About this RNA
Rfam assigns this 133-nucleotide sequence from Sapayoa aenigma to the family "Small nucleolar RNA SNORA55". From the family's description: ACA55 is a member of the H/ACA class of snoRNA that guide the sites of modification of uridines to pseudouridines. The organism belongs to Sapayoa, within Eukaryota. Rfam classes the family as an H/ACA-box small nucleolar RNA. The base pairs follow the family's consensus structure, which was predicted with PFOLD.

RNA sequence: GUAGCUGACUCUCUCCUGUUCCUCGCUGUGCAGUGCAGGCGUGGGGUCAGUUUGUGCUAUAGCACAGCACUGGAAAUCCAGAUGGGUUGUUUUCUAGUGGCUUGGGACUCAUGUUUAUACCUCUGCGACACUU
Numbered sequence: 001g002u003a004g005c006u007g008a009c010u011c012u013c014u015c016c017u018g019u020u021c022c023u024c025g026c027u028g029u030g031c032a033g034u035g036c037a038g039g040c041g042u043g044g045g046g047u048c049a050g051u052u053u054g055u056g057c058u059a060u061a062g063c064a065c066a067g068c069a070c071u072g073g074a075a076a077u078c079c080a081g082a083u084g085g086g087u088u089g090u091u092u093u094c095u096a097g098u099g100g101c102u103u104g105g106g107a108c109u110c111a112u113g114u115u116u117a118u119a120c121c122u123c124u125g126c127g128a129c130a131c132u133u
Base pairs, nucleotide, nucleotide: 001057002056003055014046015045016044017043018042019041021039022038067126068125069124072121080114082112083111084110085109086108087107094105095104096103